This 140-nucleotide RNA sequence from Mus spicilegus belongs to the Rfam family "Small nucleolar RNA SNORA29". NCBI's taxonomy places the organism under Eukaryota, Deuterostomia, Sarcopterygii, Boreoeutheria, Mus. It scores 66 bits against the family's covariance model. The literature on the family includes a 2001 paper in EMBO J by Huttenhofer et al., "RNomics: an experimental approach that identifies 201 candidates for novel, small, non-messenger RNAs in mouse". Its family is annotated with RNA processing and nucleolus in the Gene Ontology. From the family's description: ACA29 is a member of the H/ACA class of snoRNA that guide the sites of modification of uridines to pseudouridines.

RNA sequence: CUGCACAUAAAAUAGUUGUUUUCUUCUCUUACUACUAGAUAUGGUGGUUACAUUUAUGCAGCAGAUUAAAAUUGUCAUGAUAUGAAGAGAGAGGGCUUUUGGGUGUUCUCUUUCUUUAUAAAAUGGCUGGACAUACUAUC
Number, nucleotide and partner (000 for none) at each position: 001c000002u000003g000004c000005a000006c058007a057008u000009a000010a000011a000012a000013u000014a000015g000016u047017u046018g045019u044020u000021u000022u000023c000024u000025u000026c000027u000028c000029u000030u000031a000032c000033u000034a000035c000036u000037a000038g000039a000040u000041a000042u000043g000044g019045u018046g017047g016048u000049u000050a000051c000052a000053u000054u000055u000056a000057u007058g006059c000060a000061g000062c000063a000064g000065a000066u000067u000068a000069a000070a000071a000072u000073u000074g127075u126076c125077a124078u000079g000080a000081u000082a000083u000084g000085a000086a000087g000088a000089g000090a000091g000092a115093g114094g113095g112096c000097u000098u000099u000100u000101g000102g000103g000104u000105g000106u000107u000108c000109u000110c000111u000112u095113u094114c093115u092116u000117u000118a000119u000120a000121a000122a000123a000124u077125g076126g075127c074128u000129g000130g000131a000132c000133a000134u000135a000136c000137u000138a000139u000140c000